A member of the RNA family "Giardia U1 spliceosomal RNA" from Giardia duodenalis, 120 nucleotides long. On this family, see Hudson et al., Nucleic Acids Res 2012: "Evolutionarily divergent spliceosomal snRNAs and a conserved non-coding RNA processing motif in Giardia lamblia". Lineage of the source: Eukaryota > Metamonada > Diplomonadida > Giardiinae > Giardia duodenalis. Rfam links the family to the GO terms mRNA 5'-splice site recognition, pre-mRNA 5'-splice site binding and U1 snRNP.
RNA sequence: ACUUACCUUAAGGGUGGCGAUGAGCCAUUGUUCAGGCCGGCUAAUGCUGCGCAUACCGCGCUGGUGUUUGUCACAGAGCAGUGCUCUCAGACCUGCUACUGUACCCUUUUAAUUUUUCCU
Numbered sequence: 001a002c003u004u005a006c007c008u009u010a011a012g013g014g015u016g017g018c019g020a021u022g023a024g025c026c027a028u029u030g031u032u033c034a035g036g037c038c039g040g041c042u043a044a045u046g047c048u049g050c051g052c053a054u055a056c057c058g059c060g061c062u063g064g065u066g067u068u069u070g071u072c073a074c075a076g077a078g079c080a081g082u083g084c085u086c087u088c089a090g091a092c093c094u095g096c097u098a099c100u101g102u103a104c105c106c107u108u109u110u111a112a113u114u115u116u117u118c119c120u
Stems, first nucleotide, its partner, number of pairs: 010108006016038003021034005039072003043068006049061004073102004077097005